[Rfam]
The record is a 79-nucleotide RNA from Anguilla anguilla, which matches "mir-144 microRNA precursor family" in Rfam. The match comes from Rfam's covariance-model search (88 bits). On this family, see Xu et al., FEBS Lett 2006: "Identification of microRNAs from different tissues of chicken embryo and adult chicken". The base pairs follow the family's consensus structure, which was predicted with RNAalifold.
RNA sequence: GCCCUGGACAGGAUAUCACCGUAUACUGUAAGUUCAUUACUGAGACACUACAGUAUAGAUGAUGUACUAUCCAGGGUCC
Numbered sequence: 001g002c003c004c005u006g007g008a009c010a011g012g013a014u015a016u017c018a019c020c021g022u023a024u025a026c027u028g029u030a031a032g033u034u035c036a037u038u039a040c041u042g043a044g045a046c047a048c049u050a051c052a053g054u055a056u057a058g059a060u061g062a063u064g065u066a067c068u069a070u071c072c073a074g075g076g077u078c079c
Stems, first nucleotide, its partner, number of pairs: 007071002010068002013065006020058001022057009032046003